[Rfam]
RNA sequence: CAGUCCGUGAGGAUGGGUGCGGAGGUAGCGAAGACAAAACCCGGAACAGGCGGCGAAACAUGUUGGCUGACGGAACCGGACAACUCUGCAAAGGAAGGGAAUGUCCUAUACCACCAAAGGUUCCGGAAGUUAGGAGUACUGGCUUCGGGGGAAAGUUGGUUGGC
Numbered sequence: 001c002a003g004u005c006c007g008u009g010a011g012g013a014u015g016g017g018u019g020c021g022g023a024g025g026u027a028g029c030g031a032a033g034a035c036a037a038a039a040c041c042c043g044g045a046a047c048a049g050g051c052g053g054c055g056a057a058a059c060a061u062g063u064u065g066g067c068u069g070a071c072g073g074a075a076c077c078g079g080a081c082a083a084c085u086c087u088g089c090a091a092a093g094g095a096a097g098g099g100a101a102u103g104u105c106c107u108a109u110a111c112c113a114c115c116a117a118a119g120g121u122u123c124c125g126g127a128a129g130u131u132a133g134g135a136g137u138a139c140u141g142g143c144u145u146c147g148g149g150g151g152a153a154a155g156u157u158g159g160u161u162g163g164c
Stems, first nucleotide, its partner, number of pairs: 001016001003014004028164002031161002034156002040149005047141003061138001066130003071125006078106004084099004
This 164-nucleotide sequence from Paenibacillus oceani belongs to the Rfam family "Group II catalytic intron D1-D4-3". Group II introns are found in rRNA, tRNA and mRNA of organelles in fungi, plants and protists, and also in mRNA in bacteria.